Small nucleolar RNA SNORD100: a 77-nucleotide sequence from Sorex araneus. Clan: SNORD100 clan. For this family Rfam cites "Purified box C/D snoRNPs are able to reproduce site-specific 2'-O-methylation of target RNA in vitro" (Galardi et al., Mol Cell Biol, 2002). It is one of the family's seed sequences. Rfam links the family to the GO terms RNA processing and nucleolus. Pairs were carried over by alignment from the consensus structure, which was predicted with RNAalifold.
RNA sequence: GCUGUGCAUGAUGACAACUGGCUCCCUCUACUGAACCACUCUGAGGAAACUGCCAUGUCACCCAGUCUGACAACAGC
Numbered sequence: 001g002c003u004g005u006g007c008a009u010g011a012u013g014a015c016a017a018c019u020g021g022c023u024c025c026c027u028c029u030a031c032u033g034a035a036c037c038a039c040u041c042u043g044a045g046g047a048a049a050c051u052g053c054c055a056u057g058u059c060a061c062c063c064a065g066u067c068u069g070a071c072a073a074c075a076g077c
Stems, first nucleotide, its partner, number of pairs: 001077005